Shown here is a 150-nucleotide sequence from Aspergillus hiratsukae, a member of the family "A. fumigatus sRNA Afu_254". The match comes from Rfam's covariance-model search (79 bits). By type it is a small RNA. Taxonomically the source falls in Aspergillus subgen. Fumigati (Eukaryota, Pezizomycotina, Aspergillaceae, Aspergillus).
[Rfam]
RNA sequence: AUACCAGCUACAAUACAACCCAAAGCCUAUCUUCAAGCAACCCUUCUUUCACCACCAACUCAAUCAAGAUGACUCCCUGCUCCUGCAACAACUGCGGCUGCGCCACCGACUGCAACGGCUGCAAGUGCUCCUCUUGCGGAGUAAGUAUCU
Numbered sequence: 001a002u003a004c005c006a007g008c009u010a011c012a013a014u015a016c017a018a019c020c021c022a023a024a025g026c027c028u029a030u031c032u033u034c035a036a037g038c039a040a041c042c043c044u045u046c047u048u049u050c051a052c053c054a055c056c057a058a059c060u061c062a063a064u065c066a067a068g069a070u071g072a073c074u075c076c077c078u079g080c081u082c083c084u085g086c087a088a089c090a091a092c093u094g095c096g097g098c099u100g101c102g103c104c105a106c107c108g109a110c111u112g113c114a115a116c117g118g119c120u121g122c123a124a125g126u127g128c129u130c131c132u133c134u135u136g137c138g139g140a141g142u143a144a145g146u147a148u149c150u
Stems, first nucleotide, its partner, number of pairs: 078108002081105001085101003112137003121128002